[Rfam]
RNA sequence: ACCGCGGACCGGGCCCCUCUGGCGAUCGAGCCAUCGAUCGUGAUGUCGGACCGCAUCG
Numbered sequence: 001a002c003c004g005c006g007g008a009c010c011g012g013g014c015c016c017c018u019c020u021g022g023c024g025a026u027c028g029a030g031c032c033a034u035c036g037a038u039c040g041u042g043a044u045g046u047c048g049g050a051c052c053g054c055a056u057c058g
Stems, first nucleotide, its partner, number of pairs: 006052002009049004022041008
Shown here is a 58-nucleotide sequence from Phenylobacterium glaciei, a member of the family "terC RNA".